RNA sequence: AGCAAACCAGGCCUUCUCUUCCCGUUUCUUCCCAGAGUUAGGAAAAGCUGGGUUGAGAGGGCAUUUUUAAAAAAAA
Numbered sequence: 001a002g003c004a005a006a007c008c009a010g011g012c013c014u015u016c017u018c019u020u021c022c023c024g025u026u027u028c029u030u031c032c033c034a035g036a037g038u039u040a041g042g043a044a045a046a047g048c049u050g051g052g053u054u055g056a057g058a059g060g061g062c063a064u065u066u067u068u069a070a071a072a073a074a075a076a
Stems, first nucleotide, its partner, number of pairs: 014059005021052004029044004034039001
Rfam assigns this 76-nucleotide RNA from Aotus nancymaae to the family "mir-320 microRNA precursor family".
The source organism's lineage runs through Eukaryota, Chordata, Theria, Primates and Aotus.
The family's consensus secondary structure was predicted with RNAalifold.
Rfam 15.1 lists 659 matches to the family in 129 species.